[Rfam]
RNA sequence: UAACACUGGCGGCUGCGUAUCACUCUAGGGUACGUGAUAGUGCGAUAUAAGAAGCACUGGUACAUGCCGGCAGGGACAGUUAAGAGAUGGCCGCAGUCUCGUGUCCCUGCCGGUUUGGCUA
Dot-bracket structure: ........[[[[[...(((((.......)))))......((((..........))))((((..(...((((((((((......(((((.]]]]].)))))..))))))))))..)..))))
Shown here is a 121-nucleotide RNA sequence from Teredinibacter turnerae, a member of the family "RT-12 RNA". Rfam's curators put it in the seed alignment. Taxonomically the source falls in Teredinibacter turnerae (Bacteria, Pseudomonadota, Cellvibrionales, Cellvibrionaceae).